[Rfam]
Shown here is a 439-nucleotide part of an RNA from Vibrio maritimus, a member of the family "Bacterial large subunit ribosomal RNA".

RNA sequence: CUCCCCGAAAUCUAUUUAGGUAGAGCCUCGGACGAAUACUACUGGGGGUAGAGCACUGUUAAGGCUAGGGGGUCAUCCCGACUUACCAACCCUUUGCAAACUCCGAAUACCAGUAAGUACUAUCCGGGAGACACACGGCGGGUGCUAACGUCCGUCGUGGAGAGGGAAACAACCCAGACCGCCAGCUAAGGUCCCAAAUUAUAGCUAAGUGGGAAACGAUGUGGGAAGGCUUAGACAGCUAGGAUGUUGGCUUAGAAGCAGCCAUCAUUUAAAGAAAGCGUAAUAGCUCACUAGUCGAGUCGGCCUGCGCGGAAGAUGUAACGGGGCUAAGCUAUAAACCGAAGCUGCGGCAAUAUACUUUGUAUAUUGGGUAGGGGAGCGUUCUGUAAGCCGUUGAAGGUGGAUUGUAAGGUCUGCUGGAGGUAUCAGAAGUGCGAAU
Numbered sequence: 001c002u003c004c005c006c007g008a009a010a011u012c013u014a015u016u017u018a019g020g021u022a023g024a025g026c027c028u029c030g031g032a033c034g035a036a037u038a039c040u041a042c043u044g045g046g047g048g049u050a051g052a053g054c055a056c057u058g059u060u061a062a063g064g065c066u067a068g069g070g071g072g073u074c075a076u077c078c079c080g081a082c083u084u085a086c087c088a089a090c091c092c093u094u095u096g097c098a099a100a101c102u103c104c105g106a107a108u109a110c111c112a113g114u115a116a117g118u119a120c121u122a123u124c125c126g127g128g129a130g131a132c133a134c135a136c137g138g139c140g141g142g143u144g145c146u147a148a149c150g151u152c153c154g155u156c157g158u159g160g161a162g163a164g165g166g167a168a169a170c171a172a173c174c175c176a177g178a179c180c181g182c183c184a185g186c187u188a189a190g191g192u193c194c195c196a197a198a199u200u201a202u203a204g205c206u207a208a209g210u211g212g213g214a215a216a217c218g219a220u221g222u223g224g225g226a227a228g229g230c231u232u233a234g235a236c237a238g239c240u241a242g243g244a245u246g247u248u249g250g251c252u253u254a255g256a257a258g259c260a261g262c263c264a265u266c267a268u269u270u271a272a273a274g275a276a277a278g279c280g281u282a283a284u285a286g287c288u289c290a291c292u293a294g295u296c297g298a299g300u301c302g303g304c305c306u307g308c309g310c311g312g313a314a315g316a317u318g319u320a321a322c323g324g325g326g327c328u329a330a331g332c333u334a335u336a337a338a339c340c341g342a343a344g345c346u347g348c349g350g351c352a353a354u355a356u357a358c359u360u361u362g363u364a365u366a367u368u369g370g371g372u373a374g375g376g377g378a379g380c381g382u383u384c385u386g387u388a389a390g391c392c393g394u395u396g397a398a399g400g401u402g403g404a405u406u407g408u409a410a411g412g413u414c415u416g417c418u419g420g421a422g423g424u425a426u427c428a429g430a431a432g433u434g435c436g437a438a439u
Stems, first nucleotide, its partner, number of pairs: 001379006011024005026130001027128006036121001040115006051104001052102002057098003061094004068087002070084005134159010164175003179350004184346003190340003199337007217311002221308005228301003238295005244268003249263003269273001274289001278287002351369008380434001382431005390424003399418008